Shown here is a 93-nucleotide RNA sequence, a member of the family "Rhodo-rpoB RNA".
Rfam classes the family as a cis-regulatory element.
RNA sequence: AGAUCGGGAGGCUUUCAUUGGGAAGAAAGCCAGGAAUUGAUCGAGCUAAGCUAUCUCUUAUGGGCGUGCCGCCGGGACCCGACGGUUGGCGCA
Numbered sequence: 001a002g003a004u005c006g007g008g009a010g011g012c013u014u015u016c017a018u019u020g021g022g023a024a025g026a027a028a029g030c031c032a033g034g035a036a037u038u039g040a041u042c043g044a045g046c047u048a049a050g051c052u053a054u055c056u057c058u059u060a061u062g063g064g065c066g067u068g069c070c071g072c073c074g075g076g077a078c079c080c081g082a083c084g085g086u087u088g089g090c091g092c093a
Stems, first nucleotide, its partner, number of pairs: 002042004010031007066092004071086004